Source information: The family of this 102-nucleotide sequence from Peribacillus loiseleuriae is "Purine riboswitch aptamer".

RNA sequence: UAAUAGAUAUUAUUUGUUCACCGUAUAAUAUUGGGGAUAAGGCCCAAGAGUUUCUACCGAGCUACCGAAAAUAGCUUGACUACGAUGUGAAGGAUACGCAUG
Numbered sequence: 001u002a003a004u005a006g007a008u009a010u011u012a013u014u015u016g017u018u019c020a021c022c023g024u025a026u027a028a029u030a031u032u033g034g035g036g037a038u039a040a041g042g043c044c045c046a047a048g049a050g051u052u053u054c055u056a057c058c059g060a061g062c063u064a065c066c067g068a069a070a071a072u073a074g075c076u077u078g079a080c081u082a083c084g085a086u087g088u089g090a091a092g093g094a095u096a097c098g099c100a101u102g
Stems, first nucleotide, its partner, number of pairs: 019087002022084004029049001031047005058078007
Its family is annotated with purine nucleobase biosynthetic process in the Gene Ontology. A search with the family's covariance model found it, with a score of 82 bits.